[Rfam]
RNA sequence: CGCCGCCGCCCUCCUUGGGCGUUUCCUCCCUAGACUUGGGCCGCUCCGGCAACGCGAGCGGCCUCUUUCUUUUCAACG
Number, nucleotide and partner (000 for none) at each position: 001c000002g000003c000004c000005g000006c000007c000008g020009c019010c018011c017012u000013c000014c000015u000016u000017g011018g010019g009020c008021g000022u000023u000024u000025c000026c000027u000028c000029c000030c000031u000032a000033g000034a000035c000036u000037u000038g000039g063040g062041c061042c060043g059044c058045u057046c056047c000048g000049g000050c000051a000052a000053c000054g000055c000056g046057a045058g044059c043060g042061g041062c040063c039064u000065c000066u000067u000068u000069c000070u000071u000072u000073u000074c000075a000076a000077c000078g000